Rfam assigns this 303-nucleotide RNA sequence from Raphidocelis subcapitata to the family "Group I catalytic intron". Gene Ontology term of the family: Group I intron splicing. On this family, see Cech, Annu Rev Biochem 1990: "Self-splicing of group I introns". The organism belongs to Raphidocelis, within Eukaryota. Rfam describes the family as follows. Group I catalytic introns are large self-splicing ribozymes. They catalyse their own excision from mRNA, tRNA and rRNA precursors in a wide range of organisms. The core secondary structure consists of 9 paired regions (P1-P9). These fold to essentially two domains - the P4-P6 domain (formed from the stacking of P5, P4, P6 and P6a helices) and the P3-P9 domain (formed from the P8, P3, P7 and P9 helices). The family has 12 seed sequences and 5,602 matches in Rfam 15.1.

[Rfam]
RNA sequence: UUCUAGAGCUAAUAGUGUUAUUGGUUCUGAAAGGGUUCAAAAACCCUAGUGGCACGUUUGCUGCGACACUGUCCAAUUGCCGGAACAUCUCGCCAAUCCUCUUGGUACCGCUCAGCCUUGGAAACAAGUUGAGCACCGCAUGGGAAACCUGCGGGUACGGUAAUAAUUCGAGGGGUAGAGACAAUCGGCAGCCAAGUCCUACGGGUAGAGAGCCUCUACCUAGGGAUGCAGUUCACAGACUAAAUGGCAGUGGGCCCUUCGUACGGGCUUAAGAUAUAGUCGAAGCCUCACAGCAAUGUGGGU
Numbered sequence: 001u002u003c004u005a006g007a008g009c010u011a012a013u014a015g016u017g018u019u020a021u022u023g024g025u026u027c028u029g030a031a032a033g034g035g036u037u038c039a040a041a042a043a044c045c046c047u048a049g050u051g052g053c054a055c056g057u058u059u060g061c062u063g064c065g066a067c068a069c070u071g072u073c074c075a076a077u078u079g080c081c082g083g084a085a086c087a088u089c090u091c092g093c094c095a096a097u098c099c100u101c102u103u104g105g106u107a108c109c110g111c112u113c114a115g116c117c118u119u120g121g122a123a124a125c126a127a128g129u130u131g132a133g134c135a136c137c138g139c140a141u142g143g144g145a146a147a148c149c150u151g152c153g154g155g156u157a158c159g160g161u162a163a164u165a166a167u168u169c170g171a172g173g174g175g176u177a178g179a180g181a182c183a184a185u186c187g188g189c190a191g192c193c194a195a196g197u198c199c200u201a202c203g204g205g206u207a208g209a210g211a212g213c214c215u216c217u218a219c220c221u222a223g224g225g226a227u228g229c230a231g232u233u234c235a236c237a238g239a240c241u242a243a244a245u246g247g248c249a250g251u252g253g254g255c256c257c258u259u260c261g262u263a264c265g266g267g268c269u270u271a272a273g274a275u276a277u278a279g280u281c282g283a284a285g286c287c288u289c290a291c292a293g294c295a296a297u298g299u300g301g302g303u
Stems, first nucleotide, its partner, number of pairs: 003024004067252005073246001078190006088181004191232002196227004204220005236282001238281005254268004259263001288301005